[Rfam]
RNA: Acido-Lenti-1 RNA
RNA sequence: CCAGGGGUUACCACCCCUGGCUAUUAAACUCCGCCGCUUCGCGGCU
Dot-bracket structure: ((((((((....))))))))............(((((...))))).
Numbered sequence: 001c002c003a004g005g006g007g008u009u010a011c012c013a014c015c016c017c018u019g020g021c022u023a024u025u026a027a028a029c030u031c032c033g034c035c036g037c038u039u040c041g042c043g044g045c046u
Stems, first nucleotide, its partner, number of pairs: 001020008033045005